[Rfam]
A member of the RNA family "Makes More Granules Regulator RNA (mmgR)" from Roseitalea porphyridii, 75 nucleotides long. It scores 56 bits against the family's covariance model. On this family, see Corbino et al., Genome Biol 2005: "Evidence for a second class of S-adenosylmethionine riboswitches and other regulatory RNA motifs in alpha-proteobacteria". The family is grouped with related families in Rfam's "suhB sRNA clan". NCBI's taxonomy places the organism under Bacteria, Pseudomonadati, Alphaproteobacteria, Hyphomicrobiales, Roseitalea.

RNA sequence: UGCCGCGCCCUUCUGGGCGUUUCCUCCCUAGACUCGGACCGCAUUCGUGUGAAUGCGGUCUUUUUUUGGUGAUUA
Numbered sequence: 001u002g003c004c005g006c007g008c009c010c011u012u013c014u015g016g017g018c019g020u021u022u023c024c025u026c027c028c029u030a031g032a033c034u035c036g037g038a039c040c041g042c043a044u045u046c047g048u049g050u051g052a053a054u055g056c057g058g059u060c061u062u063u064u065u066u067u068g069g070u071g072a073u074u075a
Stems, first nucleotide, its partner, number of pairs: 007018004037060009